The record is a 108-nucleotide RNA from Mannheimia varigena, which matches "Aggregatibacter sRNA 22" in Rfam. A reference for the family is Oogai et al. (2017), "Small RNA repertoires and their intraspecies variation in Aggregatibacter actinomycetemcomitans", DNA Res. A search with the family's covariance model found it, with a score of 47 bits.
[Rfam]
RNA sequence: AAGCGGUCACAAAAAAGCAUCGUUUUUUUGAACAUUGGCUUUGCUAACGGCAGAGAAAUUGUGAAUGAUUUUUUGCUGAAAAUUUGCAAAUUUCCAAUAAAAAAUGAC
Numbered sequence: 001a002a003g004c005g006g007u008c009a010c011a012a013a014a015a016a017g018c019a020u021c022g023u024u025u026u027u028u029u030g031a032a033c034a035u036u037g038g039c040u041u042u043g044c045u046a047a048c049g050g051c052a053g054a055g056a057a058a059u060u061g062u063g064a065a066u067g068a069u070u071u072u073u074u075g076c077u078g079a080a081a082a083u084u085u086g087c088a089a090a091u092u093u094c095c096a097a098u099a100a101a102a103a104a105u106g107a108c
Stems, first nucleotide, its partner, number of pairs: 010030007018022001033049001035047005050062004066086003070082004090105004